[Rfam]
RNA sequence: CGCCCCAAGGAGCGCUGCAGCGGCCCGGUUGAUGCCAACCCGCCCGUCAGGCUUGGGGCCCCGGCAGGCUGCGGCCCUGCCGCAUGCAACGGCGCUCACCUGUU
Numbered sequence: 001c002g003c004c005c006c007a008a009g010g011a012g013c014g015c016u017g018c019a020g021c022g023g024c025c026c027g028g029u030u031g032a033u034g035c036c037a038a039c040c041c042g043c044c045c046g047u048c049a050g051g052c053u054u055g056g057g058g059c060c061c062c063g064g065c066a067g068g069c070u071g072c073g074g075c076c077c078u079g080c081c082g083c084a085u086g087c088a089a090c091g092g093c094g095c096u097c098a099c100c101u102g103u104u
Base pairs, nucleotide, nucleotide: 002059003058004057005056006055007054008053021046022045023044025042
A member of the RNA family "SAH (S-adenosyl-L-homocysteine) riboswitch aptamer" from Comamonas terrigena, 104 nucleotides long. On this family, see Wang et al., Mol Cell 2008: "Riboswitches that sense S-adenosylhomocysteine and activate genes involved in coenzyme recycling". The source organism's lineage runs through Bacteria, Pseudomonadati, Pseudomonadota, Betaproteobacteria and Comamonas.